[Rfam]
RNA: Editing element of GABA-3 exon 9
RNA sequence: AAAGUAGCCUACGCCACGGCCAUGGACUGGUUCAUAGCUGUAUGCUAUGCCUUU
Numbered sequence: 001a002a003a004g005u006a007g008c009c010u011a012c013g014c015c016a017c018g019g020c021c022a023u024g025g026a027c028u029g030g031u032u033c034a035u036a037g038c039u040g041u042a043u044g045c046u047a048u049g050c051c052u053u054u
Stems, first nucleotide, its partner, number of pairs: 001054003007050002010047002013045002016041005022035005